[Rfam]
RNA sequence: AUGAGCCUGUCUUAGUCGAUGUAUUCGACAAGCCCAGGCAGUCUUUAGGUCUUCAAAGCUGCGGUAUCUUUUCAAGAUAUUGACCAUUGCCAGCUCGUCAAGCACUCAAUACACGAGCGAUUAUCAAUUUGAUAAGAGUGU
Dot-bracket structure: ...........(..(((((.....)))))).......(((((.....[[[[......)))))(((((((.....)))))))]]]]...........................(((.....((((((...))))))...)))
RNA: radC RNA
Organism: Zophobihabitans entericus